[Rfam]
RNA sequence: UGCCUGCCGUGAUGACUCCCUAGGACGGUAUAUGAGCGAUGGGCCUGCCCGCCGCGUGAUUAUACCCAAUCUGAGACUAAUGUCUGAGCAAGCG
Numbered sequence: 001u002g003c004c005u006g007c008c009g010u011g012a013u014g015a016c017u018c019c020c021u022a023g024g025a026c027g028g029u030a031u032a033u034g035a036g037c038g039a040u041g042g043g044c045c046u047g048c049c050c051g052c053c054g055c056g057u058g059a060u061u062a063u064a065c066c067c068a069a070u071c072u073g074a075g076a077c078u079a080a081u082g083u084c085u086g087a088g089c090a091a092g093c094g
Stems, first nucleotide, its partner, number of pairs: 001094003005090003036055003040051002
RNA: Small nucleolar RNA Z118/Z121/Z120